[Rfam]
RNA sequence: CCAGUCGGUCGGGCAGCCGCACCUGUGUCGCGAAAGCAAUCAGGUGAGGAAAGUCCGGGCUCCAAGAAAGCACGGUGCCGGGUAACACCCGGCGGAGGCGACUCUAGGGAAAGUGCCACAGAAAGCAAACCGCCUGACCUUGGUCAGGUAAGGGUGAAAGGGUGAGGUAAGAGCUCACCGCGUCUUCAGCAAUGCGGACGGCAGGGUAAACCCCACCGGGAGCAAGACCGAAUAGGAAUGGCGUGGGCCUCGGCCCGGCUUGCUUUCAAGUCAGUCAUUCGGGUGGGUUGCAUGAGGCAUUCAGCAAUGGAUGCCCCAGAUGAAUGGUUGCCACGCAAAGGCUUUGGCCUUUGCCGUACAAAACCCGGCUUACAGACCGACUGGUAUU
Number, nucleotide and partner (000 for none) at each position: 001c384002c383003a382004g381005u380006c379007g378008g377009u376010c375011g373012g332013g331014c330015a329016g328017c327018c326019g000020c046021a045022c044023c043024u042025g041026u000027g000028u038029c000030g000031c000032g000033a000034a000035a000036g000037c000038a028039a000040u000041c025042a024043g023044g022045u021046g020047a000048g000049g000050a000051a371052a370053g369054u000055c368056c367057g366058g365059g364060c222061u221062c220063c219064a000065a000066g000067a000068a000069a000070g267071c000072a000073c218074g217075g216076u215077g214078c092079c091080g090081g089082g088083u000084a000085a000086c000087a000088c082089c081090c080091g079092g078093c107094g105095g104096a103097g102098g000099c000100g000101a000102c097103u096104c095105u094106a000107g093108g213109g212110a000111a000112a000113g211114u210115g207116c206117c205118a000119c000120a000121g000122a000123a000124a000125g000126c000127a000128a000129a000130c153131c152132g149133c148134c147135u146136g145137a144138c143139c000140u000141u000142g000143g138144u137145c136146a135147g134148g133149u132150a000151a000152g131153g130154g000155u000156g000157a000158a000159a000160g000161g179162g178163u177164g176165a175166g174167g000168u000169a000170a000171g000172a000173g000174c166175u165176c164177a163178c162179c161180g202181c200182g199183u198184c197185u196186u000187c194188a193189g000190c000191a000192a000193u188194g187195c000196g185197g184198a183199c182200g181201g000202c180203a000204g000205g117206g116207u115208a000209a000210a114211c113212c109213c108214c077215a076216c075217c074218g073219g063220g062221a061222g060223c000224a000225a000226g289227a288228c287229c286230g000231a000232a000233u000234a000235g000236g280237a279238a278239u277240g276241g275242c000243g000244u000245g000246g000247g000248c000249c000250u000251c000252g000253g000254c000255c000256c000257g000258g000259c000260u000261u000262g000263c000264u268265u000266u000267c070268a264269a000270g000271u000272c000273a000274g000275u241276c240277a239278u238279u237280c236281g000282g000283g000284u000285g000286g229287g228288u227289u226290g000291c000292a000293u000294g000295a000296g315297g314298c313299a312300u311301u310302c309303a308304g000305c000306a000307a000308u303309g302310g301311a300312u299313g298314c297315c296316c000317c000318a000319g000320a000321u000322g000323a000324a000325u000326g018327g017328u016329u015330g014331c013332c012333a000334c000335g000336c000337a000338a000339a000340g000341g000342c000343u000344u000345u000346g000347g000348c000349c000350u000351u000352u000353g000354c000355c000356g000357u000358a000359c000360a000361a000362a000363a000364c059365c058366c057367g056368g055369c053370u052371u051372a000373c011374a000375g010376a009377c008378c007379g006380a005381c004382u003383g002384g001385u000386a000387u000388u000